[Rfam]
RNA sequence: UUUACAGAGCCAGUUUGACAUGCUGGCCGCCUCCAAAAGACUGAUUCAGAAGGCAUAACGAUCGAGGAAAUCUCGGUUAGGGAGGUGGACAGAAUGCCAAAUUGGCUCUGCAAC
Numbered sequence: 001u002u003u004a005c006a007g008a009g010c011c012a013g014u015u016u017g018a019c020a021u022g023c024u025g026g027c028c029g030c031c032u033c034c035a036a037a038a039g040a041c042u043g044a045u046u047c048a049g050a051a052g053g054c055a056u057a058a059c060g061a062u063c064g065a066g067g068a069a070a071u072c073u074c075g076g077u078u079a080g081g082g083a084g085g086u087g088g089a090c091a092g093a094a095u096g097c098c099a100a101a102u103u104g105g106c107u108c109u110g111c112a113a114c
Stems, first nucleotide, its partner, number of pairs: 011104001015100003019096002024091002027088008
MIR394 microRNA precursor family: a 114-nucleotide RNA from Morus notabilis. For this family Rfam cites "Computational identification of plant microRNAs and their targets, including a stress-induced miRNA" (Jones-Rhoades and Bartel, Mol Cell, 2004). Gene Ontology terms of the family: miRNA-mediated post-transcriptional gene silencing and RISC complex. It scores 60 bits against the family's covariance model. Taxonomically the source falls in Morus (Eukaryota, Viridiplantae, Streptophyta, Gunneridae).